[Rfam]
This 66-nucleotide RNA from Panthera leo belongs to the Rfam family "Small nucleolar RNA SNORD69". A reference for the family is Huttenhofer et al. (2001), "RNomics: an experimental approach that identifies 201 candidates for novel, small, non-messenger RNAs in mouse", EMBO J. It is annotated as a C/D-box small nucleolar RNA. Its family is annotated with RNA processing and nucleolus in the Gene Ontology.
RNA sequence: CACAUGAAGCAGGGAUGACAGCCUUGAACUGAAGAAUGUGAUCUAUUCAACCCUAUGCCUCAUGUG
Numbered sequence: 001c002a003c004a005u006g007a008a009g010c011a012g013g014g015a016u017g018a019c020a021g022c023c024u025u026g027a028a029c030u031g032a033a034g035a036a037u038g039u040g041a042u043c044u045a046u047u048c049a050a051c052c053c054u055a056u057g058c059c060u061c062a063u064g065u066g
Base pairs, nucleotide, nucleotide: 001066002065003064004063005062006061007060009058010057